[Rfam]
RNA sequence: GCGCAUCAACACCUUGGCUCUAGACUGCUUACUGCUAAAACCGCUCCCAAGUACAGUAACAGUCUACAGUCAUGGCUACUGACGCCUG
Dot-bracket structure: ...........((.((((....(((((.(((((.....................))))))))))....)))).)).............

mir-132 microRNA precursor family: an 88-nucleotide RNA from Takifugu flavidus. The source organism's lineage runs through Eukaryota, Osteoglossocephalai, Acanthomorphata, Tetraodontidae and Takifugu. Rfam 15.1 lists 1,023 matches to the family in 386 species. For this family Rfam cites "The developmental miRNA profiles of zebrafish as determined by small RNA cloning" (Chen et al., Genes Dev, 2005).